[Rfam]
RNA sequence: AAAGUUUUUGGGCUUCUCUUCCUGGUUCUUCCUGGAGUCAGGAAAAGCUGGGUUGAAAGGGUAAAACAAAAGAAAA
Numbered sequence: 001a002a003a004g005u006u007u008u009u010g011g012g013c014u015u016c017u018c019u020u021c022c023u024g025g026u027u028c029u030u031c032c033u034g035g036a037g038u039c040a041g042g043a044a045a046a047g048c049u050g051g052g053u054u055g056a057a058a059g060g061g062u063a064a065a066a067c068a069a070a071a072g073a074a075a076a
Stems, first nucleotide, its partner, number of pairs: 014059002017056002021052005029044006

The record is a 76-nucleotide sequence from Sapajus apella, which matches "mir-320 microRNA precursor family" in Rfam. A search with the family's covariance model found it, with a score of 75 bits. Its family is annotated with miRNA-mediated post-transcriptional gene silencing, negative regulation of gene expression and long-term synaptic potentiation in the Gene Ontology. Rfam 15.1 lists 659 matches to the family in 129 species.